[Rfam]
RNA: Group II catalytic intron D1-D4-2
RNA sequence: GGGAGUCGGCCUCCCGGUAUCGGCGUGCAGGCGCUGGUAUCAAACUACUUCUAAGCUGCUGCGGUUAAGUAGCCGUGGUGGGGAGCGUUAGGAGAAAAGGCAUCAUUAAAGGUGUCAGGU
Dot-bracket structure: (((((.....)))))((((((.((((....)))).))))))....(.((.((((.(.(((.((((......)))).))).)......)))).))....((((((......))))))..).